[Rfam]
RNA sequence: GUGGAAGGGGCAUGCAGAGGAGCGGCCAUGGGAGCUUUGCUUGCCUCUAGGCUCUGGCUCUCUCCUGUGCCUGCCUCUUCGAUU
Numbered sequence: 001g002u003g004g005a006a007g008g009g010g011c012a013u014g015c016a017g018a019g020g021a022g023c024g025g026c027c028a029u030g031g032g033a034g035c036u037u038u039g040c041u042u043g044c045c046u047c048u049a050g051g052c053u054c055u056g057g058c059u060c061u062c063u064c065c066u067g068u069g070c071c072u073g074c075c076u077c078u079u080c081g082a083u084u
Base pairs, nucleotide, nucleotide: 001083002082004080005079006078007077008076009075010074011073012072014070015069016068018066019065020064021063022062024061025060
Description
Rfam assigns this 84-nucleotide sequence from Triticum turgidum to the family "MIR528 microRNA precursor family". Pairs were carried over by alignment from the consensus structure, which was predicted with RNAalifold. Its family is annotated with miRNA-mediated post-transcriptional gene silencing and RISC complex in the Gene Ontology.